This 69-nucleotide RNA sequence from Acidovorax sp. Leaf160 belongs to the Rfam family "Xanthine riboswitch aptamer (NMT1 RNA)". A reference for the family is Xu et al. (2021), "Insights into xanthine riboswitch structure and metal ion-mediated ligand recognition", Nucleic Acids Res. It scores 46 bits against the family's covariance model.
RNA sequence: CUGCCGAGUAGAAGCGUUCAGCGCAGCCGGCCAUCCACCGCCCGGCAGCGCCCGGAAAUUGCUCAGUUC
Numbered sequence: 001c002u003g004c005c006g007a008g009u010a011g012a013a014g015c016g017u018u019c020a021g022c023g024c025a026g027c028c029g030g031c032c033a034u035c036c037a038c039c040g041c042c043c044g045g046c047a048g049c050g051c052c053c054g055g056a057a058a059u060u061g062c063u064c065a066g067u068u069c
Stems, first nucleotide, its partner, number of pairs: 006064005015054001018056002021051004026046005